[Rfam]
RNA sequence: CGAUGAGGUAGAGGUCGCGGCUUUUAUGAGUAAGACGGACGAGAUGCAGUGUACAUCCCUGACUCUGCCCAAAAGGAAAAGCCGCCGAAGUCCAUCUUCUUCCCUGAGAGUAUGGGCUGGGGCUGUCUCCGAACAGGAACAGAACUGUCACAUCUGCAGAAUCCAGCAGAUGUGGUGUGCUAUCUUACGG
Numbered sequence: 001c002g003a004u005g006a007g008g009u010a011g012a013g014g015u016c017g018c019g020g021c022u023u024u025u026a027u028g029a030g031u032a033a034g035a036c037g038g039a040c041g042a043g044a045u046g047c048a049g050u051g052u053a054c055a056u057c058c059c060u061g062a063c064u065c066u067g068c069c070c071a072a073a074a075g076g077a078a079a080a081g082c083c084g085c086c087g088a089a090g091u092c093c094a095u096c097u098u099c100u101u102c103c104c105u106g107a108g109a110g111u112a113u114g115g116g117c118u119g120g121g122g123c124u125g126u127c128u129c130c131g132a133a134c135a136g137g138a139a140c141a142g143a144a145c146u147g148u149c150a151c152a153u154c155u156g157c158a159g160a161a162u163c164c165a166g167c168a169g170a171u172g173u174g175g176u177g178u179g180c181u182a183u184c185u186u187a188c189g190g
Stems, first nucleotide, its partner, number of pairs: 006185006017085009034069001036067004089118007097110004119146002123142004128137002148175010
RNA: Lysine riboswitch aptamer
Organism: Ectobacillus ponti